[Rfam]
RNA: MIR1120/MIR1122 microRNA precursor family
Organism: Triticum turgidum
RNA sequence: CUACUCCCUCCGUCCCAUAAUGUAGGACGUUUUUUGACACUAGUGUAGUGUUGAAAAACAUCUUACAUUAUGAGACGGAGGGAGUAA
Numbered sequence: 001c002u003a004c005u006c007c008c009u010c011c012g013u014c015c016c017a018u019a020a021u022g023u024a025g026g027a028c029g030u031u032u033u034u035u036g037a038c039a040c041u042a043g044u045g046u047a048g049u050g051u052u053g054a055a056a057a058a059c060a061u062c063u064u065a066c067a068u069u070a071u072g073a074g075a076c077g078g079a080g081g082g083a084g085u086a087a
Stems, first nucleotide, its partner, number of pairs: 003085003007081005013075002016072002019069009029059013